Description:
A member of the RNA family "mir-3689 microRNA precursor family" from Pan troglodytes, 71 nucleotides long. The source organism's lineage runs through Eukaryota, Eutheria, Euarchontoglires, Hominoidea and Pan.

RNA sequence: GGGAGGUGUGAUCCCGUGCUCCCUGGGAGGUGUAUCCUUUGCUCCUUGGGAGGUAUGAUCUCGUGCUCCGU
Numbered sequence: 001g002g003g004a005g006g007u008g009u010g011a012u013c014c015c016g017u018g019c020u021c022c023c024u025g026g027g028a029g030g031u032g033u034a035u036c037c038u039u040u041g042c043u044c045c046u047u048g049g050g051a052g053g054u055a056u057g058a059u060c061u062c063g064u065g066c067u068c069c070g071u
Stems, first nucleotide, its partner, number of pairs: 002069004015057004020052001022050006029043001031041002034038001